[Rfam]
RNA sequence: AAAAUAUUAGGACCGUCGGUCUACCGAGCAAUAUCACCUGCUCGGUAGAAGAUCUUCCUUUCGUCAU
Numbered sequence: 001a002a003a004a005u006a007u008u009a010g011g012a013c014c015g016u017c018g019g020u021c022u023a024c025c026g027a028g029c030a031a032u033a034u035c036a037c038c039u040g041c042u043c044g045g046u047a048g049a050a051g052a053u054c055u056u057c058c059u060u061u062c063g064u065c066a067u
Base pairs, nucleotide, nucleotide: 004064005063010058011057012056015053016052017051020049021048022047023046024045025044026043027042028041029040

mir-2774 microRNA precursor family: a 67-nucleotide RNA sequence from Bombyx mori.
Lineage of the source: Eukaryota > Protostomia > Panarthropoda > Altocrustacea > Bombyx.
Its family is annotated with RISC complex and miRNA-mediated post-transcriptional gene silencing in the Gene Ontology.
It scores 84 bits against the family's covariance model.